[Rfam]
RNA sequence: UUUGCGCUUAGGCUGAUCACCGAAAACUGGAGUCCUUACCCCGGCUGGCGCAAAUUUUUAUGGUAAGG
Numbered sequence: 001u002u003u004g005c006g007c008u009u010a011g012g013c014u015g016a017u018c019a020c021c022g023a024a025a026a027c028u029g030g031a032g033u034c035c036u037u038a039c040c041c042c043g044g045c046u047g048g049c050g051c052a053a054a055u056u057u058u059u060a061u062g063g064u065a066a067g068g
Base pairs, nucleotide, nucleotide: 001054002053003052004051005050006049007048008047011021012020027044028043029042030041034068035067036066037065038064
The family of this 68-nucleotide RNA from Thiothrix eikelboomii is "int-alpA RNA". Rfam 15.1 lists 577 matches to the family in 491 species. Rfam describes the family as follows. Acidobacteria (1 example), Planctomycetes (1 example), Proteobacteria. It scores 40 bits against the family's covariance model. Taxonomically the source falls in Thiothrix (Bacteria, Pseudomonadota, Thiotrichales, Thiotrichaceae). It is annotated as a small RNA.